RNA: UnaL2 LINE 3' element
Organism: Salmo trutta
RNA sequence: AACUAUCCUGUUGUAAGUCGCUCUGGAUAAGAGCGUCUGCUAAAUGACUUAAA
Numbered sequence: 001a002a003c004u005a006u007c008c009u010g011u012u013g014u015a016a017g018u019c020g021c022u023c024u025g026g027a028u029a030a031g032a033g034c035g036u037c038u039g040c041u042a043a044a045u046g047a048c049u050u051a052a053a
Base pairs, nucleotide, nucleotide: 012042013040014039015038019035020034021033022032023031024030